[Rfam]
RNA sequence: AUGUCAUCCCGUGAGGUGACAAAGACGCAGUAUACGAAAUUCUUUAAGAAUGGAAUAGUUUUUUUAAAGAAGUCUUACUCAGAGAGCCUAUUGCUGUA
Numbered sequence: 001a002u003g004u005c006a007u008c009c010c011g012u013g014a015g016g017u018g019a020c021a022a023a024g025a026c027g028c029a030g031u032a033u034a035c036g037a038a039a040u041u042c043u044u045u046a047a048g049a050a051u052g053g054a055a056u057a058g059u060u061u062u063u064u065u066a067a068a069g070a071a072g073u074c075u076u077a078c079u080c081a082g083a084g085a086g087c088c089u090a091u092u093g094c095u096g097u098a
Base pairs, nucleotide, nucleotide: 002021003020004019005018006017009016010015027097028096029095030094032091033090034089041070042069043068044067045066046065047064048063049062050061072087073086075084076083
RNA: Streptococcus sRNA SpF44